[Rfam]
Nucleotides: 079
Stems, first nucleotide, its partner, number of pairs: 001032001003030001006026001008024005034063013
Number, partner (000 for none) and nucleotide at each position: 001032g002000a003030u004000u005000u006026c007000u008024c009023c010022c011021a012020g013000g014000u015000g016000u017000g018000u019000g020012c021011u022010g023009g024008g025000u026006g027000a028000u029000a030003a031000g032001c033000g034063a035062a036061a037060g038059u039058c040057a041056u042055c043054g044053g045052g046051u047000u048000g049000c050000c051046g052045c053044c054043c055042g056041g057040u058039g059038g060037c061036u062035u063034u064000c065000u066000u067000c068000g069000u070000u071000u072000u073000u074000c075000a076000u077000u078000g079000u